[Rfam]
RNA sequence: ACAACAUUUAUUUUGGACUGUCGGUCUACAGAGCAAUAUUACCCACUCUGUGGAAGAUCUUCCUUUGUCGU
Dot-bracket structure: ...(((........(((..(((..(((((((((............))))))))).)))..)))..)))...
Numbered sequence: 001a002c003a004a005c006a007u008u009u010a011u012u013u014u015g016g017a018c019u020g021u022c023g024g025u026c027u028a029c030a031g032a033g034c035a036a037u038a039u040u041a042c043c044c045a046c047u048c049u050g051u052g053g054a055a056g057a058u059c060u061u062c063c064u065u066u067g068u069c070g071u
Stems, first nucleotide, its partner, number of pairs: 004068003015063003020058003025054009
Annotation:
Shown here is a 71-nucleotide sequence from Bombyx mori, a member of the family "mir-2774 microRNA precursor family". Its family is annotated with RISC complex and miRNA-mediated post-transcriptional gene silencing in the Gene Ontology.